Rfam assigns this 94-nucleotide RNA from Pirellulimonas nuda to the family "c-di-GMP-I riboswitch aptamer".
RNA sequence: CCACGAGAAGGGCAAACCAGCCGCAAGACUGGGGCGCAAAGCCAAGGGCCGACGUCUCCCCUCACCGGGGGGCAGCGGCAGCCGGGCUGCCGAA
Numbered sequence: 001c002c003a004c005g006a007g008a009a010g011g012g013c014a015a016a017c018c019a020g021c022c023g024c025a026a027g028a029c030u031g032g033g034g035c036g037c038a039a040a041g042c043c044a045a046g047g048g049c050c051g052a053c054g055u056c057u058c059c060c061c062u063c064a065c066c067g068g069g070g071g072g073c074a075g076c077g078g079c080a081g082c083c084g085g086g087c088u089g090c091c092g093a094a
Stems, first nucleotide, its partner, number of pairs: 012037002017032004022027001040088004046083002048079003056072006

Lineage of the source: Bacteria > Pseudomonadati > Pirellulales > Lacipirellulaceae > Pirellulimonas.